[Rfam]
RNA: c-di-AMP riboswitch aptamer (ydaO/yuaA leader)
RNA sequence: UCAAUCUGAGCGCUUAAUUCUUUCAGUUAGAAAGAAGCGGGGGAACCAAUAUUUUGGGGUGAAUCCCCUUCGAUUAAAGAAUAAUGAUUCGUUCUUAAUCAAAGGGGUAGGGUUAGACUCUUCAAUCCGAACCCGACAGCUAACCUCGCAAGCGUGGCAAGAGGAGGU
Numbered sequence: 001u002c003a004a005u006c007u008g009a010g011c012g013c014u015u016a017a018u019u020c021u022u023u024c025a026g027u028u029a030g031a032a033a034g035a036a037g038c039g040g041g042g043g044a045a046c047c048a049a050u051a052u053u054u055u056g057g058g059g060u061g062a063a064u065c066c067c068c069u070u071c072g073a074u075u076a077a078a079g080a081a082u083a084a085u086g087a088u089u090c091g092u093u094c095u096u097a098a099u100c101a102a103a104g105g106g107g108u109a110g111g112g113u114u115a116g117a118c119u120c121u122u123c124a125a126u127c128c129g130a131a132c133c134c135g136a137c138a139g140c141u142a143a144c145c146u147c148g149c150a151a152g153c154g155u156g157g158c159a160a161g162a163g164g165a166g167g168u
Base pairs, nucleotide, nucleotide: 011154012153013152014151018036019035020034021033022032023031024030037149038148039147040146041145042144047056048055057134058133059132065107066106067105068104069103070102110128111127112126113125